[Rfam]
RNA sequence: GGAGGCGCGCGAGCGCCUGGUGGCCUCCGCGGUCUUCAAAACCGUUGGUCCCGAGGACCUCGGGACGGCGGGUUCGAUUCCCGUGCGCCUCC
Numbered sequence: 001g002g003a004g005g006c007g008c009g010c011g012a013g014c015g016c017c018u019g020g021u022g023g024c025c026u027c028c029g030c031g032g033u034c035u036u037c038a039a040a041a042c043c044g045u046u047g048g049u050c051c052c053g054a055g056g057a058c059c060u061c062g063g064g065a066c067g068g069c070g071g072g073u074u075c076g077a078u079u080c081c082c083g084u085g086c087g088c089c090u091c092c
Stems, first nucleotide, its partner, number of pairs: 001092009011027003015024003029045005048066005069083004
A member of the RNA family "Selenocysteine transfer RNA" from Actinomadura verrucosospora, 92 nucleotides long. A search with the family's covariance model found it, with a score of 76 bits. Taxonomically the source falls in Actinomadura (Bacteria, Bacillati, Actinomycetota, Actinomycetes). The family is grouped with related families in Rfam's "tRNA clan".